[Rfam]
RNA sequence: GUUGGGAGGGCGGUGAAUACAAUACCUGUUCGCAGGGAAUAAACCCAGCCGACUAUUGACGGUUUUUCAGCCUCCUGACGCCCAAUU
Dot-bracket structure: (((((((((..(((.(........(((......)))...)..))).(((((........)))))......)))))))))........
This 87-nucleotide RNA from Suttonella ornithocola belongs to the Rfam family "sRNA-Xcc1". The base pairs follow the family's consensus structure, which was predicted with RNAalifold. For this family Rfam cites "sRNA-Xcc1, an integron-encoded transposon- and plasmid-transferred trans-acting sRNA, is under the positive control of the key virulence regulators HrpG and HrpX of Xanthomonas campestris pathovar campestris" (Chen et al., RNA Biol, 2011). NCBI's taxonomy places the organism under Bacteria, Pseudomonadota, Gammaproteobacteria, Cardiobacteriaceae, Suttonella. Rfam 15.1 lists 421 matches to the family in 299 species.